[Rfam]
RNA sequence: UGUAAAGAGAAUAGAUGCUGUGCUGUAUGUUGAACGUAUUGUCUAUAUCACAGUGGCUGUUCUUUUUGUA
Numbered sequence: 001u002g003u004a005a006a007g008a009g010a011a012u013a014g015a016u017g018c019u020g021u022g023c024u025g026u027a028u029g030u031u032g033a034a035c036g037u038a039u040u041g042u043c044u045a046u047a048u049c050a051c052a053g054u055g056g057c058u059g060u061u062c063u064u065u066u067u068g069u070a
Base pairs, nucleotide, nucleotide: 003068004067006065007064008063009062010061011060012059016055017054018053019052020051021050022049024047025046026045027044
RNA: mir-6 microRNA precursor family
Organism: Drosophila grimshawi